[Rfam]
RNA sequence: CGAGAAUCAAGCCAACCCGCCUCAGGCGGGACGGAAAGCCACGGGUCUUUCAGACAGCCGGGUUGCCUCG
Numbered sequence: 001c002g003a004g005a006a007u008c009a010a011g012c013c014a015a016c017c018c019g020c021c022u023c024a025g026g027c028g029g030g031a032c033g034g035a036a037a038g039c040c041a042c043g044g045g046u047c048u049u050u051c052a053g054a055c056a057g058c059c060g061g062g063u064u065g066c067c068u069c070g
Stems, first nucleotide, its partner, number of pairs: 012034002017029005037064004042060003045055003
RNA: c-di-GMP-I riboswitch aptamer
Organism: Oleidesulfovibrio alaskensis